[Rfam]
RNA sequence: GCUGCCAAUGGGCGUCGUGGCGGGAGCCCGCUUCUAGGCAGUAGAUUGGUGUGGGUGGAGUGAGGGGAGGAGUCCCGCGGUGGUCGUUGAGUACGGCGACCGGGUGUCCGCGCCAAGCGUUGUCCGCCGUCGGAAGAUGGUGGGUCCUGGGCGGACAAGGAGGGGUGUACGGUCGAGGUCCGAAAGGGAGCAGGCAAAAACCCCCGCGCGAUGCAGUGGCCGGAUAGCGCCCGUGAGUGCUCGCGCUGUCGUGGCCUCUCCAAUACCUUCAGACCUCCAGUCGU
Numbered sequence: 001g002c003u004g005c006c007a008a009u010g011g012g013c014g015u016c017g018u019g020g021c022g023g024g025a026g027c028c029c030g031c032u033u034c035u036a037g038g039c040a041g042u043a044g045a046u047u048g049g050u051g052u053g054g055g056u057g058g059a060g061u062g063a064g065g066g067g068a069g070g071a072g073u074c075c076c077g078c079g080g081u082g083g084u085c086g087u088u089g090a091g092u093a094c095g096g097c098g099a100c101c102g103g104g105u106g107u108c109c110g111c112g113c114c115a116a117g118c119g120u121u122g123u124c125c126g127c128c129g130u131c132g133g134a135a136g137a138u139g140g141u142g143g144g145u146c147c148u149g150g151g152c153g154g155a156c157a158a159g160g161a162g163g164g165g166u167g168u169a170c171g172g173u174c175g176a177g178g179u180c181c182g183a184a185a186g187g188g189a190g191c192a193g194g195c196a197a198a199a200a201c202c203c204c205c206g207c208g209c210g211a212u213g214c215a216g217u218g219g220c221c222g223g224a225u226a227g228c229g230c231c232c233g234u235g236a237g238u239g240c241u242c243g244c245g246c247u248g249u250c251g252u253g254g255c256c257u258c259u260c261c262a263a264u265a266c267c268u269u270c271a272g273a274c275c276u277c278c279a280g281u282c283g284u
Base pairs, nucleotide, nucleotide: 001042002041003040004021005020006019007018010015026039027038028037044282045281046280047279048278049277051275056271057270058269059268060267064261065260066259067258068257069256070255075254076253077252078251079250080249081248082247085245086244087243090241091240092239093238094237101233102232103231104230105229106228107227108223109222112220113219114218115217117214118213119207120206121153122152123151124150125142126141127140128139129138130137131136162204163203164202165201166200172195173194174193179188180187181186

About this RNA:
A member of the RNA family "Metazoan signal recognition particle RNA" from Necator americanus, 284 nucleotides long. The organism belongs to Necator, within Eukaryota. By type it is a non-coding RNA gene.